RNA sequence: GAGCAAUGAAGUGAACUGCGCCCUUGUGAUGGUAGGGUUCCAUCCCUCUCACCUAUUUAGCGAUGAGAAACUGCGCACUGAGCUU
Numbered sequence: 001g002a003g004c005a006a007u008g009a010a011g012u013g014a015a016c017u018g019c020g021c022c023c024u025u026g027u028g029a030u031g032g033u034a035g036g037g038u039u040c041c042a043u044c045c046c047u048c049u050c051a052c053c054u055a056u057u058u059a060g061c062g063a064u065g066a067g068a069a070a071c072u073g074c075g076c077a078c079u080g081a082g083c084u085u
Stems, first nucleotide, its partner, number of pairs: 001085004
Dot-bracket structure: ((((.............................................................................))))
Shown here is an 85-nucleotide RNA sequence from Gossypium trilobum, a member of the family "small nucleolar RNA snoR114". Rfam links the family to the GO terms nucleolus and RNA processing. The family's RNA type in Rfam is C/D-box small nucleolar RNA. Taxonomically the source falls in Gossypium (Eukaryota, Streptophyta, Euphyllophyta, Malvaceae).